[Rfam]
RNA sequence: GGUCUUAAUGAUGAAUUAGAAGAGGUCAUUGUCGAGAAAACGAGACAGACAUUGGCCUCUGUUUCUUCUGGACCUAAACAUACACA
Numbered sequence: 001g002g003u004c005u006u007a008a009u010g011a012u013g014a015a016u017u018a019g020a021a022g023a024g025g026u027c028a029u030u031g032u033c034g035a036g037a038a039a040a041c042g043a044g045a046c047a048g049a050c051a052u053u054g055g056c057c058u059c060u061g062u063u064u065c066u067u068c069u070g071g072a073c074c075u076a077a078a079c080a081u082a083c084a085c086a
Stems, first nucleotide, its partner, number of pairs: 001074002004071002008067001010065002022059002025056004030051004
Notes
A member of the RNA family "Human rhinovirus internal cis-acting regulatory element (CRE)" from Enterovirus betarhino, 86 nucleotides long. It is one of the family's seed sequences. Gene Ontology term of the family: viral genome replication. Taxonomically the source falls in Rhinovirus B (Viruses, Pisuviricota, Picornaviridae, Enterovirus betarhino). This family represents a cis-acting regulatory element (CRE) from the human rhinoviruses. The CRE is located within the genome segment encoding the capsid proteins so is found in a protein coding region. The family has been found to be essential for efficient viral replication and it has been suggested that the CRE is required for initiation of minus-strand RNA synthesis.